Shown here is a 364-nucleotide RNA from Paenibacillus faecis, a member of the family "transfer-messenger RNA". It is annotated as a non-coding RNA gene. Rfam links the family to the GO term RNA catabolic process. NCBI's taxonomy places the organism under Bacteria, Bacillati, Bacillota, Caryophanales, Paenibacillus. Clan: tRNA clan.

[Rfam]
RNA sequence: GGGGGCGUUUUUGGAUUCGACGGGGGUAGAUCGAGCAUGGGUAGCGGGUAGUGGGGACGCGUCCGCUUUAUCAACGCUAAAGCCAAUUAAACGGCAAACAAAACAACAACUUAGCUUUCGCAGCUUAAUAACCUGCGUGCUAGCUCUAUCUCUGCAUCGCCCAUGUGCCGGGAAUAGGGCCCAACUUUAGUGGGAUACGCUGUCUAGUCUCCGCCUGCGGCUAGCUGAAGAAGACAAUCAGGCUGACCCGAAGGGAAUCCGGUGACGGGGAGUCUCUAGGGUGACAUCAAAACUGUCACUACACCCGUAGAAGCCUAUGUGGCGUUGCCUUCGGACAGGGGUUCGACUCCCCUCGCCUCCAUAU
Dot-bracket structure: (((((((.............(((((((((.....((((((((..((((((((((....[[[[)))))......]]]].......................................(.(((((.........))))).)...((((((((((.((((..[[[[[)))).)))).)))))).........]]]]].....(.(.(((((....[.[[...)))))).).............]].].((((.(.(((..(((.[[[[.[.))).))).).))))..........]..]]]]...))))).....))))))))....)))))))))...(((((.......))))))))))))....